The record is a 120-nucleotide sequence from Glycine soja, which matches "MIR1520 microRNA precursor family" in Rfam. NCBI's taxonomy places the organism under Eukaryota, Spermatophyta, Gunneridae, Papilionoideae, Glycine subgen. Soja. The family has 18 seed sequences and 1,934 matches in Rfam 15.1. The base pairs follow the family's consensus structure, which was predicted with RNAalifold.

[Rfam]
RNA sequence: UUCUUAUUGAAUGACGAUGGUCACAUGUGAUAUUCUGAUUGGAUGUCAACUCCAUGAAAGAUAAAAUGCAUUGUUGUUUCGAUUGACUAAUCAGAAUAUCACACGUGACAGUCGUCAUUC
Numbered sequence: 001u002u003c004u005u006a007u008u009g010a011a012u013g014a015c016g017a018u019g020g021u022c023a024c025a026u027g028u029g030a031u032a033u034u035c036u037g038a039u040u041g042g043a044u045g046u047c048a049a050c051u052c053c054a055u056g057a058a059a060g061a062u063a064a065a066a067u068g069c070a071u072u073g074u075u076g077u078u079u080c081g082a083u084u085g086a087c088u089a090a091u092c093a094g095a096a097u098a099u100c101a102c103a104c105g106u107g108a109c110a111g112u113c114g115u116c117a118u119u120c
Stems, first nucleotide, its partner, number of pairs: 020109004026103001029100003033096004038091003